[Rfam]
RNA sequence: UCGAAGUUUCAUCUAAACAAAUGGAUAAUAUUUUUGUCUUAGUGUAUACGAAUCGUUGAACAAAGUAUGCAAUACCCAUGUCUUGGGCCUUUAUCAAGACAUGGGUAUUGCUACUUU
Numbered sequence: 001u002c003g004a005a006g007u008u009u010c011a012u013c014u015a016a017a018c019a020a021a022u023g024g025a026u027a028a029u030a031u032u033u034u035u036g037u038c039u040u041a042g043u044g045u046a047u048a049c050g051a052a053u054c055g056u057u058g059a060a061c062a063a064a065g066u067a068u069g070c071a072a073u074a075c076c077c078a079u080g081u082c083u084u085g086g087g088c089c090u091u092u093a094u095c096a097a098g099a100c101a102u103g104g105g106u107a108u109u110g111c112u113a114c115u116u117u
Stems, first nucleotide, its partner, number of pairs: 008025005062117006069111007077103008

The record is a 117-nucleotide RNA from Musa balbisiana, which matches "Plastid-psbA-1 3UTR RNA" in Rfam. The family is grouped with related families in Rfam's "Plastid-psbA 3UTR RNA clan". The organism belongs to Musa, within Eukaryota. Rfam's curators write: Plastid psbA-1 is a non-coding RNA (ncRNA) present in plastids. It was identified in inverted repeat sequences in the 3 prime untranslate region (3UTR) of photosystem II quinone-binding protein (psbA).